[Rfam]
RNA sequence: AGGCAUGUACUAUCAAGAGAGCUAUCCGUCGACAGUACAAGAGAGUCUCACUGUCAUGGAGUUGCUCUCUUUAUAGGCAUGCUG
Numbered sequence: 001a002g003g004c005a006u007g008u009a010c011u012a013u014c015a016a017g018a019g020a021g022c023u024a025u026c027c028g029u030c031g032a033c034a035g036u037a038c039a040a041g042a043g044a045g046u047c048u049c050a051c052u053g054u055c056a057u058g059g060a061g062u063u064g065c066u067c068u069c070u071u072u073a074u075a076g077g078c079a080u081g082c083u084g
Stems, first nucleotide, its partner, number of pairs: 015071004020066003025060004031055003035051002
Dot-bracket structure: ..............((((.(((..((((..(((.((.............)).))).))))...))).)))).............
RNA: mir-46/mir-47/mir-281 microRNA precursor family
Organism: Nesidiocoris tenuis